[Rfam]
RNA sequence: AGGUUAUUUCAAAGACGUGUUAUGUGGUUAUAAAACCAAAGCUCUUAAUGCUAUGAUCAAAGAUGGAAGUUUUCCUGAAUAUGCUAUAGUCACUAAUGGUGCUGUUUUCUUAAGGAGAUAUAAGA
Numbered sequence: 001a002g003g004u005u006a007u008u009u010c011a012a013a014g015a016c017g018u019g020u021u022a023u024g025u026g027g028u029u030a031u032a033a034a035a036c037c038a039a040a041g042c043u044c045u046u047a048a049u050g051c052u053a054u055g056a057u058c059a060a061a062g063a064u065g066g067a068a069g070u071u072u073u074c075c076u077g078a079a080u081a082u083g084c085u086a087u088a089g090u091c092a093c094u095a096a097u098g099g100u101g102c103u104g105u106u107u108u109c110u111u112a113a114g115g116a117g118a119u120a121u122a123a124g125a
Stems, first nucleotide, its partner, number of pairs: 002058006014046002017044001019042003023039001026037002071118005078111002081108001086105004091101004

Rfam assigns this 125-nucleotide sequence from Tupaia belangeri to the family "Small nucleolar RNA SNORA25". The family's consensus secondary structure was predicted with RNAfold. It is annotated as an H/ACA-box small nucleolar RNA. It scores 88 bits against the family's covariance model. Taxonomically the source falls in Tupaia belangeri (Eukaryota, Craniata, Dipnotetrapodomorpha, Eutheria). Rfam describes the family as follows. ACA25 is a member of the H/ACA class of snoRNA that guide the sites of modification of uridines to pseudouridines.